[Rfam]
RNA: Archaeal RNase P
RNA sequence: GGCAGAGAGAGCUCGGCUCCCGUGGGCAGUGACCCAACGAGGAAAGUCCCCCCACCGUCCGGACAGGUGACCGAGUGCAAGCUCGGAGUCGGAGACGACUGGCUCUGAAACAGAAACGAGACCCCGCGACCCGACCGAUGAAUCGUGCGAAUUGACCCGCAAGGGAAGAGAGUUAACCCGACGAGGUGACGGUCGCGAACGGAUGGAACGGUGAAUCCUCACUGGUGCAAGUCCUCGCUACAAGGUAGUCUGGACAGAGCGCGGACGCUUAGCCGAAUGCCGAGAUGAACAGAAGGGGGCUUACUCCUCUCAGCC
Numbered sequence: 001g002g003c004a005g006a007g008a009g010a011g012c013u014c015g016g017c018u019c020c021c022g023u024g025g026g027c028a029g030u031g032a033c034c035c036a037a038c039g040a041g042g043a044a045a046g047u048c049c050c051c052c053c054a055c056c057g058u059c060c061g062g063a064c065a066g067g068u069g070a071c072c073g074a075g076u077g078c079a080a081g082c083u084c085g086g087a088g089u090c091g092g093a094g095a096c097g098a099c100u101g102g103c104u105c106u107g108a109a110a111c112a113g114a115a116a117c118g119a120g121a122c123c124c125c126g127c128g129a130c131c132c133g134a135c136c137g138a139u140g141a142a143u144c145g146u147g148c149g150a151a152u153u154g155a156c157c158c159g160c161a162a163g164g165g166a167a168g169a170g171a172g173u174u175a176a177c178c179c180g181a182c183g184a185g186g187u188g189a190c191g192g193u194c195g196c197g198a199a200c201g202g203a204u205g206g207a208a209c210g211g212u213g214a215a216u217c218c219u220c221a222c223u224g225g226u227g228c229a230a231g232u233c234c235u236c237g238c239u240a241c242a243a244g245g246u247a248g249u250c251u252g253g254a255c256a257g258a259g260c261g262c263g264g265a266c267g268c269u270u271a272g273c274c275g276a277a278u279g280c281c282g283a284g285a286u287g288a289a290c291a292g293a294a295g296g297g298g299g300c301u302u303a304c305u306c307c308u309c310u311c312a313g314c315c
Base pairs, nucleotide, nucleotide: 001315002314003313005311006310007309008308009307010305011304012284013283014282015281016280017279021039022038023037025035044302045301046300048299049298050297051296052295053227054226055225056224058254059253060252061251062250063249066223067222068221069220070219071086072085073084074083075082087100088099089098090097091096101218102217106214108212122202123201125197126196127195128194129193130192131191143166144165231266232265233264234263236261237260238259239258